[Rfam]
RNA sequence: ACGAGGGUAGGGCACGGGAUUCCUUUUUAGGAAAAUCUGCAGCCUUUACCGGGUUUCUCAAGUUUCGGAAUGAGAAAACCCAUUCAGGGGAUUGAAGUAUAGGAGUACAUAGGAAA
Numbered sequence: 001a002c003g004a005g006g007g008u009a010g011g012g013c014a015c016g017g018g019a020u021u022c023c024u025u026u027u028u029a030g031g032a033a034a035a036u037c038u039g040c041a042g043c044c045u046u047u048a049c050c051g052g053g054u055u056u057c058u059c060a061a062g063u064u065u066c067g068g069a070a071u072g073a074g075a076a077a078a079c080c081c082a083u084u085c086a087g088g089g090g091a092u093u094g095a096a097g098u099a100u101a102g103g104a105g106u107a108c109a110u111a112g113g114a115a116a
Base pairs, nucleotide, nucleotide: 006050007049008048009047010046011044012043058095059094061093062092063091064090065089066088068085069084070083071082072081
Background: Rfam assigns this 116-nucleotide RNA sequence to the family "Termite-leu RNA". Rfam classes the family as a cis-regulatory element. Rfam's curators put it in the seed alignment.